The record is an 86-nucleotide RNA from Paenibacillus sp. FSL H8-0548, which matches "Group II catalytic intron D1-D4-1" in Rfam. Rfam's curators write: Group II introns are found in rRNA, tRNA and mRNA of organelles in fungi, plants and protists, and also in mRNA in bacteria. On this family, see Bonen and Vogel, Trends Genet 2001: "The ins and outs of group II introns". The organism belongs to Paenibacillus, within Bacteria.
RNA sequence: CAAGCAUGGCUGUGAAGCCAUGUUGAAUGUACAGAAGUCAGCAGAGGUCAUAGUACGCAGGUUGUUGCAACAACCUGCGGAAGGAC
Numbered sequence: 001c002a003a004g005c006a007u008g009g010c011u012g013u014g015a016a017g018c019c020a021u022g023u024u025g026a027a028u029g030u031a032c033a034g035a036a037g038u039c040a041g042c043a044g045a046g047g048u049c050a051u052a053g054u055a056c057g058c059a060g061g062u063u064g065u066u067g068c069a070a071c072a073a074c075c076u077g078c079g080g081a082a083g084g085a086c
Stems, first nucleotide, its partner, number of pairs: 001025002004023008038045002047086003056079008